[Rfam]
RNA sequence: ACGCAUGUUGCAACCCCGGGCUUCUCCGAAUUAUCUAUGAAGUGAAAGCCCCAUUGCACAUGCAAAAUCGAUGCCGUUCGUGUUGCAGUUCAUCUCGUAUUUCCACGAUAGAUCUGUGUCAAAGUAAUGGCAACAUUU
Numbered sequence: 001a002c003g004c005a006u007g008u009u010g011c012a013a014c015c016c017c018g019g020g021c022u023u024c025u026c027c028g029a030a031u032u033a034u035c036u037a038u039g040a041a042g043u044g045a046a047a048g049c050c051c052c053a054u055u056g057c058a059c060a061u062g063c064a065a066a067a068u069c070g071a072u073g074c075c076g077u078u079c080g081u082g083u084u085g086c087a088g089u090u091c092a093u094c095u096c097g098u099a100u101u102u103c104c105a106c107g108a109u110a111g112a113u114c115u116g117u118g119u120c121a122a123a124g125u126a127a128u129g130g131c132a133a134c135a136u137u138u
Stems, first nucleotide, its partner, number of pairs: 003063006010057002018051005023045002026042001073131006081121002084118005092109003
Source information:
Rfam assigns this 138-nucleotide RNA sequence from Lathyrus oleraceus to the family "small nucleolar RNA snoR134". It scores 106 bits against the family's covariance model. The source organism's lineage runs through Eukaryota, Embryophyta, Fabaceae, Hologalegina and Lathyrus. The base pairs follow the family's consensus structure, which was predicted with RNAalifold. A reference for the family is Chen and Wu (2009), "Mining small RNA sequencing data: a new approach to identify small nucleolar RNAs in Arabidopsis", Nucleic Acids Res. Its family is annotated with nucleolus and RNA processing in the Gene Ontology.